[Rfam]
A member of the RNA family "glmS glucosamine-6-phosphate activated ribozyme aptamer" from Dysosmobacter segnis, 175 nucleotides long. By type it is a riboswitch. For this family Rfam cites "Control of gene expression by a natural metabolite-responsive ribozyme" (Winkler et al., Nature, 2004). Gene Ontology terms of the family: catalytic activity and regulation of gene expression. The source organism's lineage runs through Bacteria, Bacillati, Clostridia, Eubacteriales and Dysosmobacter. The match comes from Rfam's covariance-model search (72 bits).
RNA sequence: CGCCCAUCAACAGCGCCAUGCGCCCGGAAAAUGACUUCAUAGAAGCGGGGUUCCGGGAUAACGAGGAGAGGGGAGUAUCGAAACUUCGGCGGGUGCCCCUCCGUGGCCGCAGCCAUGUGACAGGUUCUACAAAUACGGGGGCGACCCCGGAACAGAAGGAAUCUGACUGCGGAGA
Numbered sequence: 001c002g003c004c005c006a007u008c009a010a011c012a013g014c015g016c017c018a019u020g021c022g023c024c025c026g027g028a029a030a031a032u033g034a035c036u037u038c039a040u041a042g043a044a045g046c047g048g049g050g051u052u053c054c055g056g057g058a059u060a061a062c063g064a065g066g067a068g069a070g071g072g073g074a075g076u077a078u079c080g081a082a083a084c085u086u087c088g089g090c091g092g093g094u095g096c097c098c099c100u101c102c103g104u105g106g107c108c109g110c111a112g113c114c115a116u117g118u119g120a121c122a123g124g125u126u127c128u129a130c131a132a133a134u135a136c137g138g139g140g141g142c143g144a145c146c147c148c149g150g151a152a153c154a155g156a157a158g159g160a161a162u163c164u165g166a167c168u169g170c171g172g173a174g175a
Stems, first nucleotide, its partner, number of pairs: 023057006030051001069100005078089004101117001103116004121165007136149005